U4atac minor spliceosomal RNA: a 127-nucleotide RNA sequence from Anabas testudineus. Rfam's curators write: U4atac is an essential component of the minor U12-type spliceosome complex which is required for removal of the rarer class of eukaryotic introns (AT-AC, U12-type). On this family, see Lorkovic et al., RNA 2005: "Evolutionary conservation of minor U12-type spliceosome between plants and humans".

RNA sequence: ACUUUCCUUGUCAUGGGGUGUGAGAGCUGCUUAAUGAACGAAUAGUGAGAGUAGCCCUGCUAACACCAUAACAACACAUGAGCAUCACCUGGACUUCUGUCCAGAUCCUGGUGCAAUUUUUGGAUCC
Numbered sequence: 001a002c003u004u005u006c007c008u009u010g011u012c013a014u015g016g017g018g019u020g021u022g023a024g025a026g027c028u029g030c031u032u033a034a035u036g037a038a039c040g041a042a043u044a045g046u047g048a049g050a051g052u053a054g055c056c057c058u059g060c061u062a063a064c065a066c067c068a069u070a071a072c073a074a075c076a077c078a079u080g081a082g083c084a085u086c087a088c089c090u091g092g093a094c095u096u097c098u099g100u101c102c103a104g105a106u107c108c109u110g111g112u113g114c115a116a117u118u119u120u121u122g123g124a125u126c127c
Stems, first nucleotide, its partner, number of pairs: 006018004020060003026055007038046002082114006089104006
The source organism's lineage runs through Eukaryota, Euteleostomi, Teleostei, Euteleosteomorpha and Anabas. Clan: U4 clan. By type it is a spliceosomal small nuclear RNA. The match comes from Rfam's covariance-model search (94 bits). Pairs were carried over by alignment from the consensus structure, which is taken from published work.